[Rfam]
RNA sequence: GUUUUCGGAUAAUCGCGCGAUUUUUUUGUAAAUCGUGAGGAAAGUCCAUGCUCGCGCGUUGCUGAGAUGCACGCAGUGAUUGUGCUAGGUCAAACAAUAAACCUAGGUAGGAGCGUCAUGCCUAACGGCUGGCCAAAACGCUAAGUCUUUUGAUAUGCGUGAGUAGCCUGUAAAAGUGCCAUAGAGACGAGUCUUAGAGGAAACUCUAAGAAUGGAACGUGGUAAACCCCUCAAGCGAGCAACCCAAACUUAUGGUCGGGGCACUUGACUAGCCAAAAUGAAGGCGUGGUCGAGGCUGAAAUUAAGAAUUUUGGCAGACAGAUGAUUAUCGAAGGGGAGAUUCACGAAUGUGAAUUGAACUGGAACAAAACAUGGCUUAUAGAA
Numbered sequence: 001g002u003u004u005u006c007g008g009a010u011a012a013u014c015g016c017g018c019g020a021u022u023u024u025u026u027u028g029u030a031a032a033u034c035g036u037g038a039g040g041a042a043a044g045u046c047c048a049u050g051c052u053c054g055c056g057c058g059u060u061g062c063u064g065a066g067a068u069g070c071a072c073g074c075a076g077u078g079a080u081u082g083u084g085c086u087a088g089g090u091c092a093a094a095c096a097a098u099a100a101a102c103c104u105a106g107g108u109a110g111g112a113g114c115g116u117c118a119u120g121c122c123u124a125a126c127g128g129c130u131g132g133c134c135a136a137a138a139c140g141c142u143a144a145g146u147c148u149u150u151u152g153a154u155a156u157g158c159g160u161g162a163g164u165a166g167c168c169u170g171u172a173a174a175a176g177u178g179c180c181a182u183a184g185a186g187a188c189g190a191g192u193c194u195u196a197g198a199g200g201a202a203a204c205u206c207u208a209a210g211a212a213u214g215g216a217a218c219g220u221g222g223u224a225a226a227c228c229c230c231u232c233a234a235g236c237g238a239g240c241a242a243c244c245c246a247a248a249c250u251u252a253u254g255g256u257c258g259g260g261g262c263a264c265u266u267g268a269c270u271a272g273c274c275a276a277a278a279u280g281a282a283g284g285c286g287u288g289g290u291c292g293a294g295g296c297u298g299a300a301a302u303u304a305a306g307a308a309u310u311u312u313g314g315c316a317g318a319c320a321g322a323u324g325a326u327u328a329u330c331g332a333a334g335g336g337g338a339g340a341u342u343c344a345c346g347a348a349u350g351u352g353a354a355u356u357g358a359a360c361u362g363g364a365a366c367a368a369a370a371c372a373u374g375g376c377u378u379a380u381a382g383a384a
Stems, first nucleotide, its partner, number of pairs: 004384003007380001008330007016037006042378003046375005051239005056074004061070002080234003084230001085106006107126001108124004113119001127229002131168003138160004145154003176227002178223003192211008243260003264294007295315008334361002339356006
The record is a 384-nucleotide RNA sequence from Lactococcus lactis, which matches "Bacterial RNase P class B" in Rfam. The source organism's lineage runs through Bacteria, Bacillati, Lactococcus, Lactococcus lactis and Lactococcus lactis subsp. lactis. On this family, see Frank and Pace, Annu Rev Biochem 1998: "Ribonuclease P: unity and diversity in a tRNA processing ribozyme". Its Rfam clan is "RNaseP clan".